[Rfam]
RNA sequence: GCUCCUGAGUGACAGCGCGAAGUACCUGGCUGGCUGUCCGGCAACCUCUCCUCCGUCUGAGGUGCUCCCAGGGGAAGAGCCGGCCGCGCUGCGCCCGCAGCACGGCAAGGACGGAGC
Numbered sequence: 001g002c003u004c005c006u007g008a009g010u011g012a013c014a015g016c017g018c019g020a021a022g023u024a025c026c027u028g029g030c031u032g033g034c035u036g037u038c039c040g041g042c043a044a045c046c047u048c049u050c051c052u053c054c055g056u057c058u059g060a061g062g063u064g065c066u067c068c069c070a071g072g073g074g075a076a077g078a079g080c081c082g083g084c085c086g087c088g089c090u091g092c093g094c095c096c097g098c099a100g101c102a103c104g105g106c107a108a109g110g111a112c113g114g115a116g117c
Base pairs, nucleotide, nucleotide: 001080002079003078004077009039011038012037013036014035015034016033021031022030040066041065042064045062046061047060083106084105085104086103088101089100090099091098092097
Dot-bracket structure: ((((....(.((((((....((.......)).)))))))(((..(((............))).)))..........))))..((((.(((((....))))).))))...........
Shown here is a 117-nucleotide RNA sequence from Geodermatophilus nigrescens, a member of the family "SAM (S-adenosyl methionine) riboswitch aptamer". A search with the family's covariance model found it, with a score of 79 bits.